[Rfam]
RNA sequence: CCCUCGGAGAGUCAUAUCAAACAUGAGUAGUUCUAGCAAUAGAACAAAAAUGGAUUCGAUGAACAGGGAA
Numbered sequence: 001c002c003c004u005c006g007g008a009g010a011g012u013c014a015u016a017u018c019a020a021a022c023a024u025g026a027g028u029a030g031u032u033c034u035a036g037c038a039a040u041a042g043a044a045c046a047a048a049a050a051u052g053g054a055u056u057c058g059a060u061g062a063a064c065a066g067g068g069a070a
Stems, first nucleotide, its partner, number of pairs: 001068004009057005022052003030045005
Dot-bracket structure: ((((....(((((........(((.....(((((......)))))....)))))))).......))))..

Rfam assigns this 70-nucleotide RNA from Aneurinibacillus soli to the family "RAGATH-18 RNA". The match comes from Rfam's covariance-model search (68 bits). Rfam classes the family as a small RNA. Actinobacteria, Firmicutes, Fusobacteria, Thermotogae (1 example).